This 121-nucleotide sequence from Achromatium sp. WMS3 belongs to the Rfam family "t44 RNA".
The match comes from Rfam's covariance-model search (69 bits).
NCBI's taxonomy places the organism under Bacteria, Pseudomonadati, Thiotrichales, Thiotrichaceae, Achromatium.
By type it is a small RNA.
[Rfam]
RNA sequence: UAAUUUUUUUAAAUAUUUCACAUAUAUACCGACACAAAACGUAGGGUGCCUUAAUUACCUUUAAAUAUUAAAGUGAAUACCUGUUAAAAAGGUUACGUUUUGGGGCAUAUAGAGGCAAAAC
Number, nucleotide and partner (000 for none) at each position: 001u000002a000003a000004u000005u000006u000007u000008u000009u000010u000011a000012a000013a000014u000015a000016u000017u000018u000019c000020a000021c000022a000023u111024a110025u109026a108027u107028a000029c105030c104031g000032a000033c000034a000035c102036a101037a100038a099039a098040c097041g096042u095043a094044g000045g000046g000047u000048g093049c092050c091051u090052u089053a000054a000055u000056u000057a000058c000059c000060u000061u000062u000063a000064a000065a000066u000067a000068u000069u000070a000071a000072a000073g000074u000075g000076a000077a000078u000079a000080c000081c000082u000083g000084u000085u000086a000087a000088a000089a052090a051091g050092g049093u048094u043095a042096c041097g040098u039099u038100u037101u036102g035103g000104g030105g029106c000107a027108u026109a025110u024111a023112g000113a000114g000115g000116c000117a000118a000119a000120a000121c000